[Rfam]
RNA sequence: GCAGCGCUGGGAGCCCGCUUCCAGCGAGGGUCGCAAC
Numbered sequence: 001g002c003a004g005c006g007c008u009g010g011g012a013g014c015c016c017g018c019u020u021c022c023a024g025c026g027a028g029g030g031u032c033g034c035a036a037c
Stems, first nucleotide, its partner, number of pairs: 005026009

The family of this 37-nucleotide sequence from Saccharothrix espanaensis is "CRISPR RNA direct repeat element". NCBI's taxonomy places the organism under Bacteria, Actinomycetes, Pseudonocardiaceae, Saccharothrix, Saccharothrix espanaensis. The match comes from Rfam's covariance-model search (41 bits). The family has 2 seed sequences and 554 matches in Rfam 15.1.